[Rfam]
RNA sequence: UAAACCUAAAACAACGAAAGCCCUACCUCUCUUUCGUCCUAAACGGCUCCUUGGCCGCGCCAAUACGAAUCAGGAAAUUUUUAAACAA
Numbered sequence: 001u002a003a004a005c006c007u008a009a010a011a012c013a014a015c016g017a018a019a020g021c022c023c024u025a026c027c028u029c030u031c032u033u034u035c036g037u038c039c040u041a042a043a044c045g046g047c048u049c050c051u052u053g054g055c056c057g058c059g060c061c062a063a064u065a066c067g068a069a070u071c072a073g074g075a076a077a078u079u080u081u082u083a084a085a086c087a088a
Stems, first nucleotide, its partner, number of pairs: 034068003040062001044057005
A member of the RNA family "BsrC" from Heyndrickxia ginsengihumi, 88 nucleotides long. The base pairs follow the family's consensus structure, which was predicted with CMfinder. The source organism's lineage runs through Bacteria, Bacillota, Bacilli, Caryophanales and Heyndrickxia. About the family: The 301 nucleotide sequence from Kouji Nakamura has been trimmed to a highly conserved ~85 nucleotide long core to form this family. The literature on the family includes a 2008 paper in Gene by Saito et al., "Novel small RNA-encoding genes in the intergenic regions of Bacillus subtilis".